[Rfam]
RNA: mir-544 microRNA precursor family
RNA sequence: AUCACCUGAGAGCUUGUGAAAAUGCAGAUUUUGCUUCAGUGGGUCUGGGAUGGGGCCUAAGGUUCUGCAUUUCUAACAAGUCCCAGGUGAUGCCAA
Numbered sequence: 001a002u003c004a005c006c007u008g009a010g011a012g013c014u015u016g017u018g019a020a021a022a023u024g025c026a027g028a029u030u031u032u033g034c035u036u037c038a039g040u041g042g043g044u045c046u047g048g049g050a051u052g053g054g055g056c057c058u059a060a061g062g063u064u065c066u067g068c069a070u071u072u073c074u075a076a077c078a079a080g081u082c083c084c085a086g087g088u089g090a091u092g093c094c095a096a
Stems, first nucleotide, its partner, number of pairs: 003089003010082001013080005019074001020072003024068005030062003